[Rfam]
RNA sequence: UGGUGUUUUUCCUCAAUGACACGAUUUCUCCCGGAUUGCUGACGACAAAGAAACGCAACCGGGAAUUUCGUGUCAGCCAAGAAUGACACCU
Numbered sequence: 001u002g003g004u005g006u007u008u009u010u011c012c013u014c015a016a017u018g019a020c021a022c023g024a025u026u027u028c029u030c031c032c033g034g035a036u037u038g039c040u041g042a043c044g045a046c047a048a049a050g051a052a053a054c055g056c057a058a059c060c061g062g063g064a065a066u067u068u069c070g071u072g073u074c075a076g077c078c079a080a081g082a083a084u085g086a087c088a089c090c091u
Stems, first nucleotide, its partner, number of pairs: 002090006009083003017075007029064006036058004
Rfam assigns this 91-nucleotide RNA sequence from Liparis tanakae to the family "mir-731 microRNA precursor family". Rfam 15.1 lists 91 matches to the family in 80 species. NCBI's taxonomy places the organism under Eukaryota, Bilateria, Euacanthomorphacea, Percomorphaceae, Liparis.